[Rfam]
RNA sequence: AAUCAUUUCAUACGAAUUCCUUAUAUAUCUAUGGUGAUAUGGACCAUAAGUCUCUACCUGGCAGCCGUAAAAUGCCGGACUAUAAGGAAAGUUGGAUCACAG
Numbered sequence: 001a002a003u004c005a006u007u008u009c010a011u012a013c014g015a016a017u018u019c020c021u022u023a024u025a026u027a028u029c030u031a032u033g034g035u036g037a038u039a040u041g042g043a044c045c046a047u048a049a050g051u052c053u054c055u056a057c058c059u060g061g062c063a064g065c066c067g068u069a070a071a072a073u074g075c076c077g078g079a080c081u082a083u084a085a086g087g088a089a090a091g092u093u094g095g096a097u098c099a100c101a102g
Base pairs, nucleotide, nucleotide: 018088019087020086021085022084023083024082025081030048031047032046033045034044035043058078059077060076061075062074063073
RNA: Purine riboswitch aptamer
Organism: Rossellomorea aquimaris